U4 spliceosomal RNA: a 132-nucleotide RNA sequence from Theileria parva. It is one of the family's seed sequences. The organism belongs to Theileria, within Eukaryota. U4 small nuclear RNA (U4 snRNA) is a component of the major U2-dependent spliceosome. A reference for the family is Zhan et al. (2018), "Structures of the human pre-catalytic spliceosome and its precursor spliceosome", Cell Res.
[Rfam]
RNA sequence: AUCCUUGCGGAAGGGGCAUUCUCGUUGCAAGUGACGCCUAGCGGAUGCGCGAUAAUUGCUAGUUGAAAACUACUCCAAUUCCCGACUUUCAUUACGCAAGUUUUGAAAGCAAUUUUUGUGGCCCUUAGGGGC
Numbered sequence: 001a002u003c004c005u006u007g008c009g010g011a012a013g014g015g016g017c018a019u020u021c022u023c024g025u026u027g028c029a030a031g032u033g034a035c036g037c038c039u040a041g042c043g044g045a046u047g048c049g050c051g052a053u054a055a056u057u058g059c060u061a062g063u064u065g066a067a068a069a070c071u072a073c074u075c076c077a078a079u080u081c082c083c084g085a086c087u088u089u090c091a092u093u094a095c096g097c098a099a100g101u102u103u104u105g106a107a108a109g110c111a112a113u114u115u116u117u118g119u120g121g122c123c124c125u126u127a128g129g130g131g132c
Stems, first nucleotide, its partner, number of pairs: 022052004027048003035043003084110001086109006094101002121132004